Annotation: This 73-nucleotide RNA from Rummeliibacillus sp. TYF005 belongs to the Rfam family "Group II catalytic intron D1-D4-1". NCBI's taxonomy places the organism under Bacteria, Bacillota, Bacilli, Caryophanaceae, Rummeliibacillus. Group II introns are found in rRNA, tRNA and mRNA of organelles in fungi, plants and protists, and also in mRNA in bacteria. A search with the family's covariance model found it, with a score of 65 bits. Rfam 15.1 lists 2,508 matches to the family in 1,144 species.
RNA sequence: CAAUUGAAUUAGCGAUAAUUUGAUGAAUCAUGAGAAGUCAGCAGAGGUCAUAGUAGUUCUUAGAAUGAAGGGC
Numbered sequence: 001c002a003a004u005u006g007a008a009u010u011a012g013c014g015a016u017a018a019u020u021u022g023a024u025g026a027a028u029c030a031u032g033a034g035a036a037g038u039c040a041g042c043a044g045a046g047g048u049c050a051u052a053g054u055a056g057u058u059c060u061u062a063g064a065a066u067g068a069a070g071g072g073c
Base pairs, nucleotide, nucleotide: 001025002024004023005022006021007020008019009018010017011016038045039044047073048072049071056066057065058064059063